[Rfam]
RNA sequence: CCGGGAGAGGUUCGCGAACUCCCUCUAUAAAAAACUAUCCGGAA
Numbered sequence: 001c002c003g004g005g006a007g008a009g010g011u012u013c014g015c016g017a018a019c020u021c022c023c024u025c026u027a028u029a030a031a032a033a034a035c036u037a038u039c040c041g042g043a044a
Stems, first nucleotide, its partner, number of pairs: 006026005016036001